Source information
The family of this 143-nucleotide sequence from Populus deltoides is "MIR474 microRNA precursor family".
RNA sequence: UCUAAAAAAUAUUGGGUUUAGCUGGGUAGCGAGACUUAACGCUAAUAAAUUUAGCCUAGAAACGAGACCCAAAUCGCUUUAAAAAAAGGUGUUAGGUCUUGCUUAGGGUUUGGCUGCCCAGCCAGACCCACUAAUCUUUGGUC
Dot-bracket structure: ((.((.....(.(((((((.((((((((((.((((((((((((............................................)))))))))))).............)))))))))).))))))).)....)).))..